[Rfam]
RNA sequence: CCCAUAAAUAAUAAAAAAAUCCGUUUAGGUCACUUAAUUUUAAGGUAUUAGUUUGAUCCUUUUUAUUAAUUUAAUUAAAAAAAAACAUUAAAUUUAGGGACUAAACUAAUACUAAUUAAAUAAGAUAAGAGACCAAACUAAUACUAAUGAAAUAAGUUAAGGGACCAAAACUUAACGUUUUUUUGAAUUAAAUUAACAUAAAGAACCAAACUCAUACUUUAAAUAAAGUUAAGGGACCUAAACAGAUUUUUUUAUUAUUUAUGGGA
Numbered sequence: 001c002c003c004a005u006a007a008a009u010a011a012u013a014a015a016a017a018a019a020u021c022c023g024u025u026u027a028g029g030u031c032a033c034u035u036a037a038u039u040u041u042a043a044g045g046u047a048u049u050a051g052u053u054u055g056a057u058c059c060u061u062u063u064u065a066u067u068a069a070u071u072u073a074a075u076u077a078a079a080a081a082a083a084a085a086c087a088u089u090a091a092a093u094u095u096a097g098g099g100a101c102u103a104a105a106c107u108a109a110u111a112c113u114a115a116u117u118a119a120a121u122a123a124g125a126u127a128a129g130a131g132a133c134c135a136a137a138c139u140a141a142u143a144c145u146a147a148u149g150a151a152a153u154a155a156g157u158u159a160a161g162g163g164a165c166c167a168a169a170a171c172u173u174a175a176c177g178u179u180u181u182u183u184u185g186a187a188u189u190a191a192a193u194u195a196a197c198a199u200a201a202a203g204a205a206c207c208a209a210a211c212u213c214a215u216a217c218u219u220u221a222a223a224u225a226a227a228g229u230u231a232a233g234g235g236a237c238c239u240a241a242a243c244a245g246a247u248u249u250u251u252u253u254a255u256u257a258u259u260u261a262u263g264g265g266a
Stems, first nucleotide, its partner, number of pairs: 002264007024242003028238003033233009042220003
RNA: MIR2655 microRNA precursor family